This 185-nucleotide RNA from Ferrimonas aestuarii belongs to the Rfam family "Gammaprotebacteria rimP leader". Pairs were carried over by alignment from the consensus structure, which is taken from published work. It is annotated as a cis-regulatory leader.
[Rfam]
RNA sequence: AUUUUCAUCAUCCCAAACAGGGUACAGCGCACUUUAAGCCCCGUUUUAGCUCGGGGCUUUUUGUUAUCUGUCCGUUGGGAUUGAUAGAGCAGUUGAGUCGAUUAAAUAGAAGUAAAUCAAUGAAUUACUCUAUUGUUUGUAUCGGCUUGAGUGCUAUAGAUAACAGGGCUUUAUGCCCUUUUUUC
Numbered sequence: 001a002u003u004u005u006c007a008u009c010a011u012c013c014c015a016a017a018c019a020g021g022g023u024a025c026a027g028c029g030c031a032c033u034u035u036a037a038g039c040c041c042c043g044u045u046u047u048a049g050c051u052c053g054g055g056g057c058u059u060u061u062u063g064u065u066a067u068c069u070g071u072c073c074g075u076u077g078g079g080a081u082u083g084a085u086a087g088a089g090c091a092g093u094u095g096a097g098u099c100g101a102u103u104a105a106a107u108a109g110a111a112g113u114a115a116a117u118c119a120a121u122g123a124a125u126u127a128c129u130c131u132a133u134u135g136u137u138u139g140u141a142u143c144g145g146c147u148u149g150a151g152u153g154c155u156a157u158a159g160a161u162a163a164c165a166g167g168g169c170u171u172u173a174u175g176c177c178c179u180u181u182u183u184u185c
Stems, first nucleotide, its partner, number of pairs: 036059008166178004